[Rfam]
RNA sequence: CGGUCCGCAGUUCACCGAGUCGCUGCCGCCCUUUUGGGUAAGCUGAACCUGCUC
Number, nucleotide and partner (000 for none) at each position: 001c017002g016003g015004u014005c000006c000007g000008c000009a000010g000011u000012u000013c000014a004015c003016c002017g001018a000019g000020u000021c000022g000023c000024u000025g000026c000027c000028g039029c038030c037031c036032u000033u000034u000035u000036g031037g030038g029039u028040a000041a000042g000043c000044u000045g000046a000047a000048c000049c000050u000051g000052c000053u000054c000
RNA: COG3860 RNA
Organism: Celeribacter ethanolicus